[Rfam]
RNA sequence: CUGCAAGCCUCCAGGGUGCUUGGGUCUGGAGUGGCCCUGUGUAUUCCUACAGUGCUUGUAAGAACAGUUUUGAAACAUUUUGAGGCCUUGCUCUACACCAAUUACAGAGCAAAGUUAUAGAAAUUUCAGACAAUU
Dot-bracket structure: ..((((((........(((..(((((......)))))...)))..........))))))...........(((((..........(.((((.((...........)).)))).).........))))).......
Numbered sequence: 001c002u003g004c005a006a007g008c009c010u011c012c013a014g015g016g017u018g019c020u021u022g023g024g025u026c027u028g029g030a031g032u033g034g035c036c037c038u039g040u041g042u043a044u045u046c047c048u049a050c051a052g053u054g055c056u057u058g059u060a061a062g063a064a065c066a067g068u069u070u071u072g073a074a075a076c077a078u079u080u081u082g083a084g085g086c087c088u089u090g091c092u093c094u095a096c097a098c099c100a101a102u103u104a105c106a107g108a109g110c111a112a113a114g115u116u117a118u119a120g121a122a123a124u125u126u127c128a129g130a131c132a133a134u135u
Stems, first nucleotide, its partner, number of pairs: 003059006017043003022037005071128005086114001088112004093107002